[Rfam]
RNA sequence: AACGUCUUUCUUCGCGCGGGAGUGCGACCCGCCACGCACGUGAUCUGCCGAUUCAUCGCCGAACACCGCGAGGAAUUCGGGGUCGCACCGAUCUGCCGCGUGCUCACCGAGCACGGCGCCGCGAUCGCCCCG
Numbered sequence: 001a002a003c004g005u006c007u008u009u010c011u012u013c014g015c016g017c018g019g020g021a022g023u024g025c026g027a028c029c030c031g032c033c034a035c036g037c038a039c040g041u042g043a044u045c046u047g048c049c050g051a052u053u054c055a056u057c058g059c060c061g062a063a064c065a066c067c068g069c070g071a072g073g074a075a076u077u078c079g080g081g082g083u084c085g086c087a088c089c090g091a092u093c094u095g096c097c098g099c100g101u102g103c104u105c106a107c108c109g110a111g112c113a114c115g116g117c118g119c120c121g122c123g124a125u126c127g128c129c130c131c132g
Base pairs, nucleotide, nucleotide: 016032017031018030019029020028078132079131080130081129082128089127090126092124093123095122096121098119099118100117101116
Description
The record is a 132-nucleotide RNA from Rhodococcus sp. CX, which matches "ALIL pseudoknot" in Rfam. A reference for the family is Mazauric et al. (2008), "Apical loop-internal loop RNA pseudoknots: a new type of stimulator of -1 translational frameshifting in bacteria", J Biol Chem. Rfam classes the family as a cis-regulatory element.